RNA: Bacillaceae-1 RNA
RNA sequence: AAAAAAAGAAGUCCGUCUAACGCGUCGCAUCGUGCGGCAAAGACUGGCUGACCCACGUCCUGUGGG
Numbered sequence: 001a002a003a004a005a006a007a008g009a010a011g012u013c014c015g016u017c018u019a020a021c022g023c024g025u026c027g028c029a030u031c032g033u034g035c036g037g038c039a040a041a042g043a044c045u046g047g048c049u050g051a052c053c054c055a056c057g058u059c060c061u062g063u064g065g066g
Stems, first nucleotide, its partner, number of pairs: 011048003015044003024038005052066005